Shown here is a 123-nucleotide sequence from Otolemur garnettii, a member of the family "Small nucleolar RNA SNORA26". The family's consensus secondary structure was predicted with RNAalifold. For this family Rfam cites "RNomics: an experimental approach that identifies 201 candidates for novel, small, non-messenger RNAs in mouse" (Huttenhofer et al., EMBO J, 2001). It is one of the family's seed sequences. Rfam links the family to the GO terms RNA processing and nucleolus. It is annotated as an H/ACA-box small nucleolar RNA. Rfam describes the family as follows. The snoRNA HBI-6 belong to the H/ACA family of snoRNAs, guiding the pseudouridylation of position U4522 if the 28S rRNA. HBI-6 is the human orthologue of mouse MBI-6 snoRNA.
RNA sequence: GUGCCCUUUUAAGGUUGAUGCAGUGCUUUAAGAGGCUAACACAGAAGGGUAAAGUAAAUCUCCAUAAAACCCAGAGAAGAGAUUUUUGAAACUCCUCUUUGGAUCCUGUCUGGAGUCACAGCU
Numbered sequence: 001g002u003g004c005c006c007u008u009u010u011a012a013g014g015u016u017g018a019u020g021c022a023g024u025g026c027u028u029u030a031a032g033a034g035g036c037u038a039a040c041a042c043a044g045a046a047g048g049g050u051a052a053a054g055u056a057a058a059u060c061u062c063c064a065u066a067a068a069a070c071c072c073a074g075a076g077a078a079g080a081g082a083u084u085u086u087u088g089a090a091a092c093u094c095c096u097c098u099u100u101g102g103a104u105c106c107u108g109u110c111u112g113g114a115g116u117c118a119c120a121g122c123u
Stems, first nucleotide, its partner, number of pairs: 002051009014040004019035001021032001060115005071102007079094003084091002